RNA sequence: GGUAAAACUUACAAGGCAGCUGGGAACAGGCAGCGCAUGGAUGGAGUCCCCAACAAACCCUGUUGUGCCUCUACUCAUGCACUGCCUCUUCCCUGGCUGCCCUGCCAAUUGCCAUGC
Numbered sequence: 001g002g003u004a005a006a007a008c009u010u011a012c013a014a015g016g017c018a019g020c021u022g023g024g025a026a027c028a029g030g031c032a033g034c035g036c037a038u039g040g041a042u043g044g045a046g047u048c049c050c051c052a053a054c055a056a057a058c059c060c061u062g063u064u065g066u067g068c069c070u071c072u073a074c075u076c077a078u079g080c081a082c083u084g085c086c087u088c089u090u091c092c093c094u095g096g097c098u099g100c101c102c103u104g105c106c107a108a109u110u111g112c113c114a115u116g117c
Base pairs, nucleotide, nucleotide: 017099018098019097020095022093023092024091025090026089028087029086030085031084032083033082035080036079037078038077039076040075044071045070
MIR408 microRNA precursor family: a 117-nucleotide RNA sequence from Momordica charantia. For this family Rfam cites "Novel and stress-regulated microRNAs and other small RNAs from Arabidopsis" (Sunkar and Zhu, Plant Cell, 2004). Lineage of the source: Eukaryota > Pentapetalae > rosids > Cucurbitaceae > Momordica. Gene Ontology terms of the family: miRNA-mediated post-transcriptional gene silencing and RISC complex.